[Rfam]
RNA sequence: CCAACGGACCGGGCCCCUCUGGCGGGCGCAGAUGACAAGCGCUCGUGAUGUCGGACCGUAUCG
Numbered sequence: 001c002c003a004a005c006g007g008a009c010c011g012g013g014c015c016c017c018u019c020u021g022g023c024g025g026g027c028g029c030a031g032a033u034g035a036c037a038a039g040c041g042c043u044c045g046u047g048a049u050g051u052c053g054g055a056c057c058g059u060a061u062c063g
Base pairs, nucleotide, nucleotide: 006057007056009054010053011052012051022046023045024044025043026042027041028040029039

terC RNA: a 63-nucleotide sequence from Sphingomicrobium sediminis. The base pairs follow the family's consensus structure, which is taken from published work.